The family of this 33-nucleotide RNA from Paenibacillus mucilaginosus is "L31-Firmicutes ribosomal protein leader". The family's consensus secondary structure is taken from published work. Rfam classes the family as a cis-regulatory leader. Rfam's curators put it in the seed alignment.
RNA sequence: CUCUGAUCCACAUGGUGGUUCAGGGCAAAAGAG
Numbered sequence: 001c002u003c004u005g006a007u008c009c010a011c012a013u014g015g016u017g018g019u020u021c022a023g024g025g026c027a028a029a030a031g032a033g
Stems, first nucleotide, its partner, number of pairs: 001025005008018003